[Rfam]
RNA sequence: GAUAGGCCGCUGUCGCUACUGUGAUUGGACACUGACGCAGAGUCAACUAGCCUUGGUCACACGGCUCUUCGCGCGUAGGAGCCAGGACGGUCCGAGCCGCGAGGGGGGAGGCUCGGACCGUUCGCA
Numbered sequence: 001g002a003u004a005g006g007c008c009g010c011u012g013u014c015g016c017u018a019c020u021g022u023g024a025u026u027g028g029a030c031a032c033u034g035a036c037g038c039a040g041a042g043u044c045a046a047c048u049a050g051c052c053u054u055g056g057u058c059a060c061a062c063g064g065c066u067c068u069u070c071g072c073g074c075g076u077a078g079g080a081g082c083c084a085g086g087a088c089g090g091u092c093c094g095a096g097c098c099g100c101g102a103g104g105g106g107g108g109a110g111g112c113u114c115g116g117a118c119c120g121u122u123c124g125c126a
Stems, first nucleotide, its partner, number of pairs: 001014005015051004021032003033045004058075001060073001062071003076084001078083001086122013100107001
The record is a 126-nucleotide sequence from Streptomyces sp. ISL-10, which matches "Streptomyces RNA 3920" in Rfam. The pairing is the family consensus, mapped onto this sequence. It is annotated as a small RNA. From the family's description: Identified by deep sequencing of transcriptome at the end of exponential growth phase. Sequencing size consistent with northern blot size. Streptomyces specific. It scores 119 bits against the family's covariance model.